[Rfam]
RNA sequence: GAGUUAUAAAGAAGAGUGGAGAGAAUAGGCUCGUUGAAGCUCUAGCAACCUUCCCCCACGGGGAGAUGGUGCUAAAACCUACCCAAGAAACAAGGGGUUUAUAAUUU
Dot-bracket structure: ((((((((....(((((...(((..[[[[)))......)))))((((.((((((.......))))..))))))...(]]]](((..(...)..)))..)))))))))
Annotation: The record is a 107-nucleotide RNA from Acetobacteroides hydrogenigenes, which matches "SAM riboswitch aptamer (S box leader)" in Rfam. NCBI's taxonomy places the organism under Bacteria, Bacteroidota, Bacteroidia, Bacteroidales, Acetobacteroides. Pairs were carried over by alignment from the consensus structure, which is taken from published work.